[Rfam]
RNA sequence: GGGGGUGUUCUGGCUUCGACGGGGGUUGCAAAGUUGUCUGGCGCAUGCCGAGGGGGCGACUGUCCUCGUUAAUCCAGUAGCAAAACUCUAGUUGCCAACGACGACAACUACGCUCUGGCCGCUUAAGGCCUAGCCCCGAACCCGCUUGUGUCCGUGCUCGCCGGUGUAGGGUCAUUAUCACGGAACCGUUUCGGAUGGCGACCCGUCAGUCCGGGAUUAAAUAAAGCGGGUAUGUCUGCAGGUGUGCUUCGUACGUUGUGUUGCCUGCCGACGAGAUCGAACAACGGACUAAGCAUGUAGUGCCGGGAAUGGCGCGCUUUCGGACGGGGGUUCAACUCCCCCCACCUCCACCA
Number, nucleotide and partner (000 for none) at each position: 001g349002g348003g347004g346005g345006u344007g343008u000009u000010c000011u000012g000013g000014c000015u000016u000017c000018g000019a000020c322021g321022g320023g319024g318025g317026u316027u000028g000029c000030a000031a000032a000033g310034u309035u308036g000037u307038c306039u305040g304041g303042c302043g301044c297045a296046u295047g294048c293049c068050g067051a066052g065053g064054g000055g000056g000057c000058g078059a000060c000061u000062g000063u000064c053065c052066u051067c050068g049069u000070u000071a000072a000073u000074c000075c000076a000077g000078u058079a000080g000081c000082a000083a000084a000085a000086c000087u000088c000089u000090a000091g000092u000093u000094g000095c000096c000097a000098a000099c000100g000101a000102c000103g000104a000105c000106a000107a000108c000109u000110a000111c000112g000113c000114u000115c133116u132117g000118g129119c128120c127121g000122c000123u000124u000125a000126a000127g120128g119129c118130c000131u000132a116133g115134c000135c171136c170137c169138g000139a167140a000141c000142c164143c163144g161145c160146u000147u000148g000149u000150g000151u184152c183153c182154g181155u180156g179157c000158u000159c000160g145161c144162c000163g143164g142165u000166g000167u139168a000169g137170g136171g135172u000173c000174a000175u000176u000177a000178u000179c156180a155181c154182g153183g152184a151185a000186c000187c000188g217189u216190u215191u214192c213193g212194g211195a210196u209197g000198g000199c000200g231201a000202c229203c228204c000205g000206u000207c000208a000209g196210u195211c194212c193213g192214g191215g190216a189217u188218u000219a000220a000221a000222u000223a000224a000225a000226g000227c000228g203229g202230g000231u200232a000233u000234g272235u271236c270237u000238g268239c267240a266241g265242g264243u263244g000245u260246g259247c258248u000249u000250c000251g289252u288253a000254c286255g285256u284257u283258g247259u246260g245261u000262u000263g243264c242265c241266u240267g239268c238269c000270g236271a235272c234273g000274a000275g000276a000277u000278c000279g000280a000281a000282c000283a257284a256285c255286g254287g000288a252289c251290u000291a000292a000293g048294c047295a046296u045297g044298u000299a000300g000301u043302g042303c041304c040305g039306g038307g037308a035309a034310u033311g000312g000313c000314g000315c000316g026317c025318u024319u023320u022321c021322g020323g000324a000325c000326g342327g341328g340329g339330g338331u000332u000333c000334a000335a000336c000337u000338c330339c329340c328341c327342c326343c007344a006345c005346c004347u003348c002349c001350a000351c000352c000353a000
The family of this 353-nucleotide RNA sequence from Arenimonas maotaiensis is "transfer-messenger RNA". Pairs were carried over by alignment from the consensus structure, which is taken from published work. From the family's description: Bacterial tmRNA, also known as 10Sa RNA or SsrA, is named for its dual tRNA and mRNA-like properties. Its role is to liberate the mRNA from a stalled ribosome. A search with the family's covariance model found it, with a score of 198 bits.